[Rfam]
RNA: Bacterial large subunit ribosomal RNA, nucleotides 1309 to 1637
Organism: Verrucomicrobia bacterium LW23
RNA sequence: GAUAAGACAGGUGAAAUCCCUGUCCGCCGUAAACCCAAGGGUUCCUGGGCAAGGUUCGUCCCCCCAGGGUGAGUCGGGAUCUAAGGUGAGGCCGAAGGGCGUAGCCGAUGACCAGCAGGUUCAAUAUUCCUGCACCACCGACAUUUAACCCGGAGUGACACAAGCAUCGACAACGUCGGCCGAUUGAACGUGGCCGUUUCGCAAGAUCCAGGAGGGUGGCAACACGCUCUGAAGCGUUGAACAUGAUUGUCGAGAAAAGCUCCGGUGCAUACUAAGGUGCCCGUACCGUAAACCGACACAGGUGGGUGGGUAGAAUAUACCAAGGCGCG
Numbered sequence: 001g002a003u004a005a006g007a008c009a010g011g012u013g014a015a016a017u018c019c020c021u022g023u024c025c026g027c028c029g030u031a032a033a034c035c036c037a038a039g040g041g042u043u044c045c046u047g048g049g050c051a052a053g054g055u056u057c058g059u060c061c062c063c064c065c066a067g068g069g070u071g072a073g074u075c076g077g078g079a080u081c082u083a084a085g086g087u088g089a090g091g092c093c094g095a096a097g098g099g100c101g102u103a104g105c106c107g108a109u110g111a112c113c114a115g116c117a118g119g120u121u122c123a124a125u126a127u128u129c130c131u132g133c134a135c136c137a138c139c140g141a142c143a144u145u146u147a148a149c150c151c152g153g154a155g156u157g158a159c160a161c162a163a164g165c166a167u168c169g170a171c172a173a174c175g176u177c178g179g180c181c182g183a184u185u186g187a188a189c190g191u192g193g194c195c196g197u198u199u200c201g202c203a204a205g206a207u208c209c210a211g212g213a214g215g216g217u218g219g220c221a222a223c224a225c226g227c228u229c230u231g232a233a234g235c236g237u238u239g240a241a242c243a244u245g246a247u248u249g250u251c252g253a254g255a256a257a258a259g260c261u262c263c264g265g266u267g268c269a270u271a272c273u274a275a276g277g278u279g280c281c282c283g284u285a286c287c288g289u290a291a292a293c294c295g296a297c298a299c300a301g302g303u304g305g306g307u308g309g310g311u312a313g314a315a316u317a318u319a320c321c322a323a324g325g326c327g328c329g
Stems, first nucleotide, its partner, number of pairs: 006024006025327004033307004039287002044068006053061002075283004080111002085106003089102001091100003115133005136279004151264006160250004171239005177196005214230003293302002309321004